[Rfam]
Background:
Shown here is a 66-nucleotide RNA sequence from Eptatretus burgeri, a member of the family "Selenocysteine insertion sequence 1". The incorporation of selenocysteine into a protein sequence is directed by an in-frame UGA codon (usually a stop codon) within the coding region of the mRNA. Selenoprotein mRNAs contain a conserved secondary structure in the 3' UTR that is required for the distinction of UGA stop from UGA selenocysteine. Gene Ontology term of the family: selenocysteine incorporation. Lineage of the source: Eukaryota > Eumetazoa > Chordata > Vertebrata > Eptatretus.
RNA sequence: CAAAGUCUGAAUGAUGAUAUUUCCCCAAAGCCCACGGGUAGGGAUAUAUCUGAUGUGUUUUCUUUG
Numbered sequence: 001c002a003a004a005g006u007c008u009g010a011a012u013g014a015u016g017a018u019a020u021u022u023c024c025c026c027a028a029a030g031c032c033c034a035c036g037g038g039u040a041g042g043g044a045u046a047u048a049u050c051u052g053a054u055g056u057g058u059u060u061u062c063u064u065u066g
Base pairs, nucleotide, nucleotide: 001066002065003064004063005062016050017049018048019047020046022044023043024042025041031038032037

Rfam classes the family as a cis-regulatory element.